[Rfam]
RNA sequence: CUUGAUCGAUCCGAGCCAGAGCGGCUCGUCCCGGUCCUGGCCGUAGGCGGUCAGGAGGGCCUGCGCCUC
Numbered sequence: 001c002u003u004g005a006u007c008g009a010u011c012c013g014a015g016c017c018a019g020a021g022c023g024g025c026u027c028g029u030c031c032c033g034g035u036c037c038u039g040g041c042c043g044u045a046g047g048c049g050g051u052c053a054g055g056a057g058g059g060c061c062u063g064c065g066c067c068u069c
Stems, first nucleotide, its partner, number of pairs: 014026004031065001032059001037054003041050003

The family of this 69-nucleotide RNA sequence from Microbispora oryzae is "ASpks TB sRNA". It scores 67 bits against the family's covariance model. Pairs were carried over by alignment from the consensus structure, which is taken from published work. Rfam classes the family as an antisense RNA.